[Rfam]
The family of this 91-nucleotide RNA from Culex quinquefasciatus is "mir-998 microRNA precursor family". The organism belongs to Culex pipiens complex, within Eukaryota. Its family is annotated with RISC complex and miRNA-mediated post-transcriptional gene silencing in the Gene Ontology.
RNA sequence: UUGGCCAAUUCCGGGACUGAACUCUCGUGGGUCUGCAGUGCUUUUCGUUGGAACUUGUAGCACCAUGAGAUUCAGCUCCGGUGCUGGUCUU
Numbered sequence: 001u002u003g004g005c006c007a008a009u010u011c012c013g014g015g016a017c018u019g020a021a022c023u024c025u026c027g028u029g030g031g032u033c034u035g036c037a038g039u040g041c042u043u044u045u046c047g048u049u050g051g052a053a054c055u056u057g058u059a060g061c062a063c064c065a066u067g068a069g070a071u072u073c074a075g076c077u078c079c080g081g082u083g084c085u086g087g088u089c090u091u
Stems, first nucleotide, its partner, number of pairs: 003089005009083001011081005017075003023070008033060005